[Rfam]
RNA sequence: CUUGUGGACUGUCAAACAGAUGUUAGUAGUAUUAGAAAUAAUAUGAGGACAGACAGGUUGAAACAAGAA
Numbered sequence: 001c002u003u004g005u006g007g008a009c010u011g012u013c014a015a016a017c018a019g020a021u022g023u024u025a026g027u028a029g030u031a032u033u034a035g036a037a038a039u040a041a042u043a044u045g046a047g048g049a050c051a052g053a054c055a056g057g058u059u060g061a062a063a064c065a066a067g068a069a
Stems, first nucleotide, its partner, number of pairs: 001067005009056005021051003029044003
Source information:
Shown here is a 69-nucleotide RNA sequence, a member of the family "RAGATH-18 RNA". The base pairs follow the family's consensus structure, which is taken from published work. Rfam's curators write: Actinobacteria, Firmicutes, Fusobacteria, Thermotogae (1 example).